[Rfam]
The family of this 63-nucleotide RNA sequence from Orycteropus afer is "Selenocysteine insertion sequence 1". Rfam links the family to the GO term selenocysteine incorporation. From the family's description: The incorporation of selenocysteine into a protein sequence is directed by an in-frame UGA codon (usually a stop codon) within the coding region of the mRNA. Selenoprotein mRNAs contain a conserved secondary structure in the 3' UTR that is required for the distinction of UGA stop from UGA selenocysteine. The selenocysteine insertion sequence (SECIS) is around 60 nt in length and adopts a hairpin structure which is sufficiently well-defined and conserved to act as a computational screen for selenoprotein genes. It is annotated as a cis-regulatory element. The match comes from Rfam's covariance-model search (35 bits). The literature on the family includes a 2002 paper in Biochimie by Lambert et al., "A survey of metazoan selenocysteine insertion sequences".
RNA sequence: UUGACCUUAAUGAUGUGGAUGGAGUAAAGCUUUCAGGACCUCCAUUUGCUGAUAUGGGGUGAA
Numbered sequence: 001u002u003g004a005c006c007u008u009a010a011u012g013a014u015g016u017g018g019a020u021g022g023a024g025u026a027a028a029g030c031u032u033u034c035a036g037g038a039c040c041u042c043c044a045u046u047u048g049c050u051g052a053u054a055u056g057g058g059g060u061g062a063a
Stems, first nucleotide, its partner, number of pairs: 001063002004060002015049010030037002